[Rfam]
RNA sequence: AUGUUAUCUUUUUCAGUGUAAAAAAUAACAA
Numbered sequence: 001a002u003g004u005u006a007u008c009u010u011u012u013u014c015a016g017u018g019u020a021a022a023a024a025a026u027a028a029c030a031a
Stems, first nucleotide, its partner, number of pairs: 002030006009024005014018001
The family of this 31-nucleotide sequence from Spodoptera littoralis is "Iron response element II". The source organism's lineage runs through Eukaryota, Arthropoda, Pancrustacea, Dicondylia and Spodoptera. It scores 34 bits against the family's covariance model. Rfam 15.1 lists 5,197 matches to the family in 722 species. Its family is annotated with response to iron ion in the Gene Ontology. The family's consensus secondary structure is taken from published work. By type it is a cis-regulatory element. About the family: IRE, TFRC, SLC40A1, SDHB, SLC11A2, CDC42BPA, ACO2, ALAS2_H.SAPIENS, CDC14A, EPAS1, ALAS2, qoxD, Hao1, NDUFS1, transferrin, Aconitate.